Shown here is a 559-nucleotide part of an RNA from Capsaspora owczarzaki, a member of the family "Eukaryotic large subunit ribosomal RNA". The sequence is in the family's curated seed alignment.
Nucleotides: 559
Stems, first nucleotide, its partner, number of pairs: 015033006034557004043537004049517002054078006063071002085513003089266002094260002097111002100109002120252005270287005290509004295505005300499001310321004329486006338471004343466007351456003354374006378427005387417006396408004434451007523532002539551004
Number, partner (000 for none) and nucleotide at each position: 001000g002000g003000u004000a005000g006000u007000a008000g009000c010000a011000a012000a013000u014000a015033u016032u017031c018030a019029a020028a021000u022000g023000a024000g025000a026000a027000c028020u029019u030018u031017g032016a033015a034557g035556a036555c037554u038000g039000a040000a041000g042000u043537g044536g045535g046534g047000a048000a049517a050516g051000g052000u053000u054078c055077c056076g057075u058074g059073a060000g061000a062000a063071c064070a065000g066000c067000a068000g069000u070064u071063g072000g073059u074058c075057a076056c077055g078054g079000g080000u081000c082000a083000g084000u085513c086512g087511a088000u089266c090265c091000u092000a093000a094260g095259a096000g097111a098110u099000a100109g101108g102000u103000u104000a105000a106000c107000u108101c109100c110098g111097u112000a113000u114000c115000a116000a117000a118000g119000c120252g121251u122250g123249c124248g125000a126000u127000u128000c129000c130000u131000u132000u133000u134000u135000u136000u137000g138000u139000g140000u141000g142000g143000c144000u145000u146000u147000u148000u149000u150000g151000g152000c153000c154000a155000a156000a157000a158000a159000g160000u161000u162000g163000a164000a165000u166000u167000u168000u169000a170000a171000a172000u173000a174000a175000g176000a177000c178000a179000u180000u181000a182000a183000a184000a185000c186000a187000u188000c189000u190000u191000g192000u193000u194000u195000c196000u197000u198000a199000c200000a201000a202000a203000a204000c205000c206000c207000a208000a209000a210000a211000a212000c213000a214000a215000a216000a217000a218000a219000a220000c221000a222000c223000a224000u225000a226000a227000c228000a229000a230000a231000a232000c233000a234000a235000a236000a237000a238000a239000a240000a241000g242000c243000g244000u245000g246000u247000a248124u249123g250122c251121a252120c253000c254000g255000c256000c257000u258000a259095u260094c261000g262000a263000a264000a265090g266089g267000g268000a269000a270287u271286c272285a273284g274283g275000u276000u277000a278000a279000u280000a281000u282000u283274c284273c285272u286271g287270a288000a289000c290509c291508a292507g293506a294000a295505u296504g297503c298502g299501g300499a301000u302000a303000a304000u305000u306000u307000c308000c309000a310321u311320g312319c313318g314000g315000c316000a317000a318313c319312g320311c321310a322000a323000a324000a325000u326000g327000a328000a329486c330485u331484c332483g333482a334481a335000g336000a337000c338471g339470c340469c341468g342000g343466c344465a345464g346463g347462a348461g349460c350000c351456c352455u353454g354374g355373g356372a357371a358370g359369a360000g361000u362000u363000c364000u365000c366000u367000u368000u369359u370358c371357u372356u373355c374354u375000u376000a377000a378427c379426g380425a381424g382423c383000c384000a385000g386000c387417a388416c389415c390414c391413u392412g393000g394000a395000a396408u397407u398406g399405g400000a401000u402000u403000a404000a405399c406398c407397a408396g409000a410000g411000a412392u413391a414390g415389g416388g417387u418000u419000u420000a421000a422000u423382g424381c425380u426379c427378g428000g429000u430000a431000a432000a433000g434451c435450a436449c437448u438447c439446u440445a441000a442000u443000u444000u445440u446439g447438g448437a449436g450435u451434g452000u453000c454353c455352g456351g457000u458000g459000c460349g461348c462347u463346c464345u465344u466343g467000a468341c469340g470339g471338c472000c473000c474000u475000u476000g477000a478000a479000a480000a481334u482333u483332c484331g485330a486329g487000g488000g489000a490000a491000a492000g493000a494000a495000u496000a497000a498000u499300u500000u501299u502298c503297g504296u505295a506293u507292c508291u509290g510000g511087u512086c513085g514000u515000a516050c517049u518000c519000a520000u521000a522000a523532c524531c525000g526000c527000a528000g529000c530000a531524g532523g533000u534046c535045u536044c537043c538000a539551a540550g541549g542548u543000g544000a545000a546000u547000a548542g549541c550540c551539u552000c553000u554037a555036g556035u557034u558000g559000a